[Rfam]
RNA sequence: CCAAUCGUCCCAUCGAUUGUAGCCUAGCCGGAGUGCGUCACGGGUAACUGUGGGGUUCUAAGCCCGGUACAACGUACCCUUCUGAGAAGAUAGGUUAAUUCGUGAGAUGAAACCGAUGUCUGGAAGCAUCGUCCGGACAAGGGG
Numbered sequence: 001c002c003a004a005u006c007g008u009c010c011c012a013u014c015g016a017u018u019g020u021a022g023c024c025u026a027g028c029c030g031g032a033g034u035g036c037g038u039c040a041c042g043g044g045u046a047a048c049u050g051u052g053g054g055g056u057u058c059u060a061a062g063c064c065c066g067g068u069a070c071a072a073c074g075u076a077c078c079c080u081u082c083u084g085a086g087a088a089g090a091u092a093g094g095u096u097a098a099u100u101c102g103u104g105a106g107a108u109g110a111a112a113c114c115g116a117u118g119u120c121u122g123g124a125a126g127c128a129u130c131g132u133c134c135g136g137a138c139a140a141g142g143g144g
Base pairs, nucleotide, nucleotide: 002019003018004017005016006015007014027068028067029066030065031064032059033058035056036055038053039052040051041050042049043048081090082089083088093114094113095112096111100107101106119137120136121135122134123133124132
RNA: Group II catalytic intron D1-D4-7